[Rfam]
RNA: tRNA
Organism: Strigomonas culicis
RNA sequence: GGAUUCAUAGCUCAGUGGUAGAGCAUUCGGCUGCAGUCCGAGCGGUCACCGGUUCAAACCCGGUUGGGUCCU
Numbered sequence: 001g002g003a004u005u006c007a008u009a010g011c012u013c014a015g016u017g018g019u020a021g022a023g024c025a026u027u028c029g030g031c032u033g034c035a036g037u038c039c040g041a042g043c044g045g046u047c048a049c050c051g052g053u054u055c056a057a058a059c060c061c062g063g064u065u066g067g068g069u070c071c072u
Stems, first nucleotide, its partner, number of pairs: 001071007010024004026042005048064005